[Rfam]
RNA sequence: ACUUUAUAUGCGGGAGAGUCUGUUAAAUCAGCACCGAAGGAGCAAAGCCCAGGAAACUCUCAGGUAAAUGGACCGUAUAUAAAAU
Dot-bracket structure: .....((((((((......(((......))).(((((..(((..............))))).))).......)))))))).....

The family of this 85-nucleotide RNA sequence from alpha proteobacterium HIMB114 is "Glycine riboswitch aptamer". The base pairs follow the family's consensus structure. NCBI's taxonomy places the organism under Bacteria, Pseudomonadota, Alphaproteobacteria, Candidatus Pelagibacterales, Candidatus Pelagibacteraceae.